Shown here is a 93-nucleotide RNA sequence from Vitreimonas silvestris, a member of the family "Glycine riboswitch aptamer". The source organism's lineage runs through Bacteria, Pseudomonadati, Pseudomonadota, Hyphomonadales and Vitreimonas. The match comes from Rfam's covariance-model search (68 bits).
RNA sequence: ACGAACCCCGUGGGAGAGCGCGGCGCAAUAAAAGCCGCCCCCGAAGGAGCAACCGCCCCGGAAACUCUCAGGGAACCGGACCGUGGGGGGAUG
Numbered sequence: 001a002c003g004a005a006c007c008c009c010g011u012g013g014g015a016g017a018g019c020g021c022g023g024c025g026c027a028a029u030a031a032a033a034g035c036c037g038c039c040c041c042c043g044a045a046g047g048a049g050c051a052a053c054c055g056c057c058c059c060g061g062a063a064a065c066u067c068u069c070a071g072g073g074a075a076c077c078g079g080a081c082c083g084u085g086g087g088g089g090g091a092u093g
Stems, first nucleotide, its partner, number of pairs: 006088008020038004040073003043069002047067003053061002